[Rfam]
RNA: Small nucleolar RNA snoR99
Nucleotides: 099
Stems, first nucleotide, its partner, number of pairs: 034093006050080008
Number, partner (000 for none) and nucleotide at each position: 001000g002000u003000a004000c005000c006000u007000g008000u009000a010000g011000g012000a013000u014000g015000a016000a017000c018000a019000g020000g021000u022000c023000c024000c025000a026000a027000c028000a029000u030000u031000u032000a033000c034093u035092c036091c037090a038089u039088u040000u041000u042000u043000u044000c045000a046000c047000u048000u049000u050080g051079u052078c053077a054076g055075c056074u057073a058000a059000u060000a061000g062000c063000c064000a065000u066000a067000a068000a069000c070000g071000u072000u073057u074056a075055g076054c077053u078052g079051g080050u081000c082000a083000u084000u085000a086000a087000g088039a089038a090037u091036g092035g093034g094000a095000a096000a097000u098000g099000u